[Rfam]
Overview:
The record is a 33-nucleotide RNA from Liquorilactobacillus mali, which matches "L31-Firmicutes ribosomal protein leader" in Rfam. NCBI's taxonomy places the organism under Bacteria, Bacillati, Bacillota, Bacilli, Liquorilactobacillus mali. The family's RNA type in Rfam is cis-regulatory leader. On this family, see Eckert and Weinberg, BMC Microbiol 2020: "Discovery of 20 novel ribosomal leader candidates in bacteria and archaea". Rfam's curators put it in the seed alignment.
RNA sequence: CUCUGGCUCAGCAAAUGGGUCAGGGCAAAGGAG
Numbered sequence: 001c002u003c004u005g006g007c008u009c010a011g012c013a014a015a016u017g018g019g020u021c022a023g024g025g026c027a028a029a030g031g032a033g
Stems, first nucleotide, its partner, number of pairs: 001025010